[Rfam]
RNA sequence: UGCCUUAUGUAAUUGGGCAUAAGGGUUGGAGAUUGUUGUCAACUGUUUCUCGAUGAUUUCAAUCAAUCCAGUA
Numbered sequence: 001u002g003c004c005u006u007a008u009g010u011a012a013u014u015g016g017g018c019a020u021a022a023g024g025g026u027u028g029g030a031g032a033u034u035g036u037u038g039u040c041a042a043c044u045g046u047u048u049c050u051c052g053a054u055g056a057u058u059u060c061a062a063u064c065a066a067u068c069c070a071g072u073a
Base pairs, nucleotide, nucleotide: 003024004023005022006021007020008019009018010017055068056067058066059065
Shown here is a 73-nucleotide sequence from Desulfitobacterium hafniense, a member of the family "RT-6 RNA". The sequence is in the family's curated seed alignment. The source organism's lineage runs through Bacteria, Bacillati, Eubacteriales, Desulfitobacterium and Desulfitobacterium hafniense.